RNA sequence: ACCGCAUACUUACCUACUGUAUAGUAGCUGACAUACGUAUAUUUCACCUACUAUAUAGCAGGUAAGUACGUGGUUU
Numbered sequence: 001a002c003c004g005c006a007u008a009c010u011u012a013c014c015u016a017c018u019g020u021a022u023a024g025u026a027g028c029u030g031a032c033a034u035a036c037g038u039a040u041a042u043u044u045c046a047c048c049u050a051c052u053a054u055a056u057a058g059c060a061g062g063u064a065a066g067u068a069c070g071u072g073g074u075u076u
Stems, first nucleotide, its partner, number of pairs: 001074005007068009017058011029046003033042003
Rfam assigns this 76-nucleotide RNA from Ameiurus melas to the family "mir-7563 microRNA precursor family". Gene Ontology terms of the family: miRNA-mediated post-transcriptional gene silencing and RISC complex.